This 75-nucleotide RNA sequence from Ophiophagus hannah belongs to the Rfam family "mir-30 microRNA precursor family". This family consists of the mammalian microRNA (miRNA) precursor mir-30a. Animal miRNAs are transcribed as ~70nt precursors and subsequently processed by the Dicer enzyme to give a ~22nt product. In this case the mature sequence comes from both the 3' (miR-30) and 5' (mir-97-6) arms of the precursor. The base pairs follow the family's consensus structure, which was predicted with PFOLD. NCBI's taxonomy places the organism under Eukaryota, Bilateria, Sauria, Unidentata, Ophiophagus. Gene Ontology terms of the family: RISC complex and gene silencing by miRNA. A reference for the family is Mourelatos et al. (2002), "miRNPs: a novel class of ribonucleoproteins containing numerous microRNAs", Genes Dev.
RNA sequence: UGCCCCUGUAAACAUCCUUGACUGGAAGCUGUGCAGGCUCAAAGAGGCUUUCAGUCGGAUGUUUACAGCGGCAGG
Number, nucleotide and partner (000 for none) at each position: 001u073002g072003c071004c070005c000006c068007u067008g066009u065010a064011a063012a062013c061014a060015u059016c058017c057018u000019u000020g000021a055022c054023u053024g052025g051026a050027a049028g048029c047030u046031g000032u000033g000034c000035a000036g000037g000038c000039u000040c000041a000042a000043a000044g000045a000046g030047g029048c028049u027050u026051u025052c024053a023054g022055u021056c000057g017058g016059a015060u014061g013062u012063u011064u010065a009066c008067a007068g006069c000070g004071g003072c002073a001074g000075g000